The family of this 152-nucleotide RNA from Pseudomonas aeruginosa is "PrrF RNA". Rfam's curators put it in the seed alignment. PrrF RNA is a small RNA involved in iron homeostasis and is found exclusively in Pseudomonas species. Pairs were carried over by alignment from the consensus structure, which is taken from published work. The family's RNA type in Rfam is small RNA. Rfam links the family to the GO term sRNA-mediated gene silencing.

[Rfam]
RNA sequence: UUGACAUGGAAAUGAGAAUCAUUAUUACGUCACUCAACUGGUCGCGAGAUCAGCCGGUAAGCUGAGAGACCCACGCAGUCGGACUCUUCAGAUUAUCUCCUCAUCAGGCUAAUCACGGUUUUUGACCCGGCACUUUGCCGGGUCUUUUUUUG
Dot-bracket structure: ..................................(..((((((....))))))..).....(((((((.(..........)..)))).))).......(((....)))...............((((((((.....))))))))........